[Rfam]
RNA sequence: CCCGCUAUUCCGGUAGCGGUAGCCUAAUCAGAAUGGCGUUGCUGGUAACGGCAAGGUCAUAAGCUCUGAUGACAACGUACUCUCCCUCAGGAAGGGUAAGUCGAGCCGUGAGGUGAGACGAUCGUCUGCAAGCAUCAUGCGGACAGGAGG
Numbered sequence: 001c002c003c004g005c006u007a008u009u010c011c012g013g014u015a016g017c018g019g020u021a022g023c024c025u026a027a028u029c030a031g032a033a034u035g036g037c038g039u040u041g042c043u044g045g046u047a048a049c050g051g052c053a054a055g056g057u058c059a060u061a062a063g064c065u066c067u068g069a070u071g072a073c074a075a076c077g078u079a080c081u082c083u084c085c086c087u088c089a090g091g092a093a094g095g096g097u098a099a100g101u102c103g104a105g106c107c108g109u110g111a112g113g114u115g116a117g118a119c120g121a122u123c124g125u126c127u128g129c130a131a132g133c134a135u136c137a138u139g140c141g142g143a144c145a146g147g148a149g150g
Stems, first nucleotide, its partner, number of pairs: 002019006028069005033060005039054006081095003085091002096123001106113002125143006
RNA: Group II catalytic intron D1-D4-7
Organism: Escherichia coli